RNA: ilvH RNA
RNA sequence: GAGGAAUCUAUCGCCUGCCAAGCUCGCACCUUACCGGGUGCGGGGGAGGGCAGCGAAAAGAGGAAUCC
Dot-bracket structure: ..........(((.(((((...(((((((((....)))))))))....))))))))............